The record is a 105-nucleotide RNA sequence from Bison bison, which matches "mir-448 microRNA precursor family" in Rfam.
The match comes from Rfam's covariance-model search (100 bits).
On this family, see Linsen et al., BMC Genomics 2010: "Small RNA expression and strain specificity in the rat".
The source organism's lineage runs through Eukaryota, Eumetazoa, Deuterostomia, Mammalia and Bison bison.
Its family is annotated with RISC complex, negative regulation of translation and negative regulation of fat cell differentiation in the Gene Ontology.
[Rfam]
RNA sequence: GCCGGGAGGUUGAACAUCCUGCAUAGUGCUGCCAGGAAAUCCCUAUUUUAUACUAAGGGGGGGUUGGCAUAUGUAGGAUGUCCCAUCUCCCCACCCACAUCAUCA
Numbered sequence: 001g002c003c004g005g006g007a008g009g010u011u012g013a014a015c016a017u018c019c020u021g022c023a024u025a026g027u028g029c030u031g032c033c034a035g036g037a038a039a040u041c042c043c044u045a046u047u048u049u050a051u052a053c054u055a056a057g058g059g060g061g062g063g064u065u066g067g068c069a070u071a072u073g074u075a076g077g078a079u080g081u082c083c084c085a086u087c088u089c090c091c092c093a094c095c096c097a098c099a100u101c102a103u104c105a
Base pairs, nucleotide, nucleotide: 004091005090006089007088008087009086010085012083014081015080016079017078018077019076020075021074022073023072024071025070027069028068029067033066034065035064040062041061042060043059044058046057047056048055